[Rfam]
RNA: cspA thermoregulator
Organism: methanotrophic endosymbiont of Bathymodiolus puteoserpentis
RNA sequence: AAUAAUAUAUUUUAUAUUUGUGGAAAAACUAUGCGGAUUCCCCUAUAGUGAGAGUCGUUACAGAUUUUGUUAUUGGUAGUAAAAAAUUUAUUCCCUCGCAUAUUUUUCUGAGUUUUCCUCUUGCAUCAGCUGUAUACAACACUUUAUUUUUUAAUUUUUAGGUAUUAAGUUCUAUGGCUACAGGCACAAUAAAAUGGUUUAACGAGUCCAAAGGUUUUGGUUUUAUUUCUCAAGAUGAUGGCGGUGCAGAUGUAUUUGUACAUUUCAGCGCGAUUCAAGGAACGGGCUUCAAGACUUUGAACGAAGGUCAAGCAGUUACUUAUGAUGUAGAAAACGGUCCUAAAGGUCCUCAAGCAACUAGUGUUGUAGCAUCUUAAGUUCGACCUAAUCGGUUUACCGAAUACAUGGAACCUCGCUUAAGCGGGGUUCUUUUUU
Numbered sequence: 001a002a003u004a005a006u007a008u009a010u011u012u013u014a015u016a017u018u019u020g021u022g023g024a025a026a027a028a029c030u031a032u033g034c035g036g037a038u039u040c041c042c043c044u045a046u047a048g049u050g051a052g053a054g055u056c057g058u059u060a061c062a063g064a065u066u067u068u069g070u071u072a073u074u075g076g077u078a079g080u081a082a083a084a085a086a087u088u089u090a091u092u093c094c095c096u097c098g099c100a101u102a103u104u105u106u107u108c109u110g111a112g113u114u115u116u117c118c119u120c121u122u123g124c125a126u127c128a129g130c131u132g133u134a135u136a137c138a139a140c141a142c143u144u145u146a147u148u149u150u151u152u153a154a155u156u157u158u159u160a161g162g163u164a165u166u167a168a169g170u171u172c173u174a175u176g177g178c179u180a181c182a183g184g185c186a187c188a189a190u191a192a193a194a195u196g197g198u199u200u201a202a203c204g205a206g207u208c209c210a211a212a213g214g215u216u217u218u219g220g221u222u223u224u225a226u227u228u229c230u231c232a233a234g235a236u237g238a239u240g241g242c243g244g245u246g247c248a249g250a251u252g253u254a255u256u257u258g259u260a261c262a263u264u265u266c267a268g269c270g271c272g273a274u275u276c277a278a279g280g281a282a283c284g285g286g287c288u289u290c291a292a293g294a295c296u297u298u299g300a301a302c303g304a305a306g307g308u309c310a311a312g313c314a315g316u317u318a319c320u321u322a323u324g325a326u327g328u329a330g331a332a333a334a335c336g337g338u339c340c341u342a343a344a345g346g347u348c349c350u351c352a353a354g355c356a357a358c359u360a361g362u363g364u365u366g367u368a369g370c371a372u373c374u375u376a377a378g379u380u381c382g383a384c385c386u387a388a389u390c391g392g393u394u395u396a397c398c399g400a401a402u403a404c405a406u407g408g409a410a411c412c413u414c415g416c417u418u419a420a421g422c423g424g425g426g427u428u429c430u431u432u433u434u435u
Stems, first nucleotide, its partner, number of pairs: 001011004019233001022230004033223001036222003040219001041214002044211001050209001052208002056204004063200002067197002073168006085157002088154003093112001095110001171184003175180001236330001238328003249257002262316003270309001271307001274301006336349002340346002352375003355369001357367002378398001380396001382394004405432001407430010